[Rfam]
RNA sequence: CUGGAAUGAUGAUUCUUAGCCAAAUCAGACAUUGAUGUGCUCCAGAGGAAUGUCAUGAGACACCCUUCUGUAGAAGCGCAUCUAUGUGAUGAUAAAACAGAGAAAUGGUAGCUAGCUGACCAGA
Numbered sequence: 001c002u003g004g005a006a007u008g009a010u011g012a013u014u015c016u017u018a019g020c021c022a023a024a025u026c027a028g029a030c031a032u033u034g035a036u037g038u039g040c041u042c043c044a045g046a047g048g049a050a051u052g053u054c055a056u057g058a059g060a061c062a063c064c065c066u067u068c069u070g071u072a073g074a075a076g077c078g079c080a081u082c083u084a085u086g087u088g089a090u091g092a093u094a095a096a097a098c099a100g101a102g103a104a105a106u107g108g109u110a111g112c113u114a115g116c117u118g119a120c121c122a123g124a
Stems, first nucleotide, its partner, number of pairs: 001123004

Source information: A member of the RNA family "small nucleolar RNA snoR127" from Daucus carota, 124 nucleotides long. The family has 3 seed sequences and 273 matches in Rfam 15.1. NCBI's taxonomy places the organism under Eukaryota, Streptophytina, eudicotyledons, Apiaceae, Daucus carota. The family's consensus secondary structure was predicted with RNAalifold. The family's RNA type in Rfam is C/D-box small nucleolar RNA.